The family of this 79-nucleotide sequence from Desulfuromonas sp. AOP6 is "c-di-GMP-I-GGC riboswitch aptamer". On this family, see Weinberg et al., Proc Natl Acad Sci U S A 2017: "Bioinformatic analysis of riboswitch structures uncovers variant classes with altered ligand specificity". A search with the family's covariance model found it, with a score of 75 bits.
RNA sequence: UCCGACAAAGGCAAACCCAGAGCAAUCUGGGGACGCAAAGCCACGGGUCCUCCCGUUGAGGACAGCCGGGCUACCGAAG
Numbered sequence: 001u002c003c004g005a006c007a008a009a010g011g012c013a014a015a016c017c018c019a020g021a022g023c024a025a026u027c028u029g030g031g032g033a034c035g036c037a038a039a040g041c042c043a044c045g046g047g048u049c050c051u052c053c054c055g056u057u058g059a060g061g062a063c064a065g066c067c068g069g070g071c072u073a074c075c076g077a078a079g
Base pairs, nucleotide, nucleotide: 001079003076004075011036012035016031017030018029019028020027021026034065039072040071041070042069044068045067046066047063048062049061

Lineage of the source: Bacteria > Pseudomonadati > Thermodesulfobacteriota > Desulfuromonadaceae > Desulfuromonas.